RNA sequence: GGUUGGGCAAAUUCUAUUUGCUUUCAAGAAAUCGUUUCUGGGGUGGGAAACU
Numbered sequence: 001g002g003u004u005g006g007g008c009a010a011a012u013u014c015u016a017u018u019u020g021c022u023u024u025c026a027a028g029a030a031a032u033c034g035u036u037u038c039u040g041g042g043g044u045g046g047g048a049a050a051c052u
Base pairs, nucleotide, nucleotide: 003027004026005025006022007021008020009019010018011017034051035050036049037048038047039046